[Rfam]
RNA sequence: UUGUGGGGUAGAGGCGCGGUAUUUAUUAGUUUUUCAUGGAGCUUAGAGCAUGCAUCGAGAUGAAAAAGAAGGAUCUACCGCCGAAGUUUAAGAAGAGCUCUAUCUUUUUAUGCUGGGUCUGCAGUGAAUAAUUGCAGGACUGUCUCGGUUAUCCUCGCGGUAAUCGAGUUGAGCUAUCUCAAUA
Number, nucleotide and partner (000 for none) at each position: 001u000002u000003g000004u000005g000006g179007g178008g177009u176010a175011g174012a000013g000014g000015c000016g081017c080018g079019g078020u077021a076022u000023u000024u073025a000026u000027u000028a000029g000030u000031u066032u065033u064034u063035c062036a061037u060038g000039g000040a000041g000042c000043u000044u000045a000046g000047a000048g000049c000050a000051u000052g000053c000054a000055u000056c000057g000058a000059g000060a037061u036062g035063a034064a033065a032066a031067a000068g000069a000070a000071g000072g000073a024074u000075c000076u021077a020078c019079c018080g017081c016082c000083g000084a000085a114086g113087u112088u000089u110090a109091a108092g107093a106094a105095g104096a103097g000098c000099u000100c000101u000102a000103u096104c095105u094106u093107u092108u091109u090110a089111u000112g087113c086114u085115g141116g140117g000118u138119c137120u136121g135122c134123a133124g132125u131126g000127a000128a000129u000130a000131a125132u124133u123134g122135c121136a120137g119138g118139a000140c116141u115142g000143u000144c168145u167146c166147g165148g164149u163150u162151a161152u000153c000154c000155u000156c000157g000158c000159g000160g000161u151162a150163a149164u148165c147166g146167a145168g144169u000170u000171g000172a000173g000174c011175u010176a009177u008178c007179u006180c000181a000182a000183u000184a000